Source information:
This 60-nucleotide sequence from Nannospalax galili belongs to the Rfam family "Gag/pol translational readthrough site".
[Rfam]
RNA sequence: UAGGGGGGUCAGGGCCAGGACCCCCCACCUGAGCCCAGGGUAACUCUCCGAGUGGGGGGA
Numbered sequence: 001u002a003g004g005g006g007g008g009u010c011a012g013g014g015c016c017a018g019g020a021c022c023c024c025c026c027a028c029c030u031g032a033g034c035c036c037a038g039g040g041u042a043a044c045u046c047u048c049c050g051a052g053u054g055g056g057g058g059g060a
Stems, first nucleotide, its partner, number of pairs: 008041003012036004016031004023059004
Overview:
Gene Ontology term of the family: viral translational readthrough. It scores 68 bits against the family's covariance model.